Rfam assigns this 175-nucleotide sequence from Holzapfeliella floricola to the family "Lysine riboswitch aptamer".
RNA sequence: AAAUGCAAUAGAGGUUGCGGUAAUCACUAAAUAAUUGCGAGUGGGUAGCUCACAUUGACCAAUUGUAGCAGGAUUUUCGCCGAAGAACAUUAGCAGACUACACUGCUAGUCUUCUGGGCCUAGUCGACAGACGGCUAGGACUGUCUCAGUUUAUCUGAGGAGUGCUAUUAUGUUA
Numbered sequence: 001a002a003a004u005g006c007a008a009u010a011g012a013g014g015u016u017g018c019g020g021u022a023a024u025c026a027c028u029a030a031a032u033a034a035u036u037g038c039g040a041g042u043g044g045g046u047a048g049c050u051c052a053c054a055u056u057g058a059c060c061a062a063u064u065g066u067a068g069c070a071g072g073a074u075u076u077u078c079g080c081c082g083a084a085g086a087a088c089a090u091u092a093g094c095a096g097a098c099u100a101c102a103c104u105g106c107u108a109g110u111c112u113u114c115u116g117g118g119c120c121u122a123g124u125c126g127a128c129a130g131a132c133g134g135c136u137a138g139g140a141c142u143g144u145c146u147c148a149g150u151u152u153a154u155c156u157g158a159g160g161a162g163u164g165c166u167a168u169u170a171u172g173u174u175a
Stems, first nucleotide, its partner, number of pairs: 007169005017080004022075004031066007084115004089110007116142002119139008144160006
Rfam 15.1 lists 3,224 matches to the family in 1,923 species.